[Rfam]
RNA sequence: UGCAGUGUUACUGUACCUGCACCCAGCAGCCUUCUCCUGGUGGGAUGUUCAGAAAGCGGUGCUACACCAGUGCAGCAUUUGGCAUCCUUGGGUCUCAGUCUGCUGUGUCUGUUACAUCUGGUAUUUUUGCUGAAACAGUC
Numbered sequence: 001u002g003c004a005g006u007g008u009u010a011c012u013g014u015a016c017c018u019g020c021a022c023c024c025a026g027c028a029g030c031c032u033u034c035u036c037c038u039g040g041u042g043g044g045a046u047g048u049u050c051a052g053a054a055a056g057c058g059g060u061g062c063u064a065c066a067c068c069a070g071u072g073c074a075g076c077a078u079u080u081g082g083c084a085u086c087c088u089u090g091g092g093u094c095u096c097a098g099u100c101u102g103c104u105g106u107g108u109c110u111g112u113u114a115c116a117u118c119u120g121g122u123a124u125u126u127u128u129g130c131u132g133a134a135a136c137a138g139u140c
Base pairs, nucleotide, nucleotide: 002062003061004060006058007057018053019048020047021046023044024043025041027039028038029037065129066128069125070124071123073120074119075118081109082108083107084106085105
Source information
Small nucleolar RNA SNORA8: a 140-nucleotide RNA sequence from Prunella himalayana. Gene Ontology terms of the family: nucleolus and RNA processing. The organism belongs to Prunella, within Eukaryota. About the family: ACA8 is a member of the H/ACA class of snoRNA that guide the sites of modification of uridines to pseudouridines. The match comes from Rfam's covariance-model search (60 bits). Clan: SNORA8 clan.